About this RNA
A member of the RNA family "Small nucleolar RNA U83B" from Denticeps clupeoides, 96 nucleotides long. Taxonomically the source falls in Denticeps (Eukaryota, Opisthokonta, Bilateria, Clupeiformes). U83B belongs to the C/D family of snoRNAs. U83B like U83A has no documented RNA target and they share the same host gene with the C/D box snoRNA U43 (RPL3). N.B. U83A/B/C have no sequence similarity with the U83 snoRNA that was cloned by Jady and Kiss (2000). The family's RNA type in Rfam is C/D-box small nucleolar RNA.
RNA sequence: AUGAGUGUGUGAUGAGAACACGGAAUAGAGCGUCAGGCGUGGCGCCUGACAACACAUGAAGAGAUCUUCCAUGCUGCCUUCCUUCUGAUUACUCCU
Numbered sequence: 001a002u003g004a005g006u007g008u009g010u011g012a013u014g015a016g017a018a019c020a021c022g023g024a025a026u027a028g029a030g031c032g033u034c035a036g037g038c039g040u041g042g043c044g045c046c047u048g049a050c051a052a053c054a055c056a057u058g059a060a061g062a063g064a065u066c067u068u069c070c071a072u073g074c075u076g077c078c079u080u081c082c083u084u085c086u087g088a089u090u091a092c093u094c095c096u
Base pairs, nucleotide, nucleotide: 001096003094004093005092